[Rfam]
RNA sequence: CCCGUCCGCCUCGUGGACGCCCUGCCCAUCCAAUCCCACUCCCGGUUACGCUGGCGCCGUGCGUCAUGCCCGGAUCCCCUCCGGGCAGCCGCAUAGCCGACAGCCGUCGCACCUCAGGGAGCCCCUACAUG
Numbered sequence: 001c002c003c004g005u006c007c008g009c010c011u012c013g014u015g016g017a018c019g020c021c022c023u024g025c026c027c028a029u030c031c032a033a034u035c036c037c038a039c040u041c042c043c044g045g046u047u048a049c050g051c052u053g054g055c056g057c058c059g060u061g062c063g064u065c066a067u068g069c070c071c072g073g074a075u076c077c078c079c080u081c082c083g084g085g086c087a088g089c090c091g092c093a094u095a096g097c098c099g100a101c102a103g104c105c106g107u108c109g110c111a112c113c114u115c116a117g118g119g120a121g122c123c124c125c126u127a128c129a130u131g
Stems, first nucleotide, its partner, number of pairs: 060093004067087008096110002099108003
RNA: Streptomyces-metH RNA